[Rfam]
RNA sequence: AAGAGCAUCGAGUCAAUAAAGAUUGAGGAGAUUGACUUAGAAACAAA
Number, nucleotide and partner (000 for none) at each position: 001a000002a000003g000004a000005g000006c000007a000008u040009c000010g038011a037012g036013u035014c034015a033016a032017u031018a000019a000020a000021g000022a000023u000024u000025g000026a000027g000028g000029a000030g000031a017032u016033u015034g014035a013036c012037u011038u010039a000040g008041a000042a000043a000044c000045a000046a000047a000

The family of this 47-nucleotide RNA sequence from Tetracentron sinense is "Plastid-rpl16 group II-D1 intron". The family's consensus secondary structure was predicted with LocARNA. The match comes from Rfam's covariance-model search (61 bits). NCBI's taxonomy places the organism under Eukaryota, Streptophytina, Magnoliopsida, Mesangiospermae, Tetracentron. Rfam's curators write: Plastid-rpl16 is a non-coding RNA (ncRNA) recognised in plastids. It was recognised in and intronic region of a ribosome rpl16 gene.